[Rfam]
RNA: Purine riboswitch aptamer
RNA sequence: UGUUCGCAAAUAUAACAACCCUAUAUAUUCUCGGUAAUACGGAUGGAAUUUCUACGGAGUGACCUUAAAUUACUCCACUAUGGACGGUGCUUCCUCAUGA
Dot-bracket structure: ....................(((((...((...((.......)).))........(((((((.......)))))))..))))).................